[Rfam]
RNA sequence: CUGUCUGCUGCUGUGUGGAAGACUAGUGAUUUUGUUGUUUUUAGUUAGAUCAACUGACAACAAAUCACAGUCUGCCAAACAGCACAGGC
Numbered sequence: 001c002u003g004u005c006u007g008c009u010g011c012u013g014u015g016u017g018g019a020a021g022a023c024u025a026g027u028g029a030u031u032u033u034g035u036u037g038u039u040u041u042u043a044g045u046u047a048g049a050u051c052a053a054c055u056g057a058c059a060a061c062a063a064a065u066c067a068c069a070g071u072c073u074g075c076c077a078a079a080c081a082g083c084a085c086a087g088g089c
Stems, first nucleotide, its partner, number of pairs: 003089004009084001011082004016077003020073005026068007034061006
RNA: mir-7 microRNA precursor family
Organism: Takifugu rubripes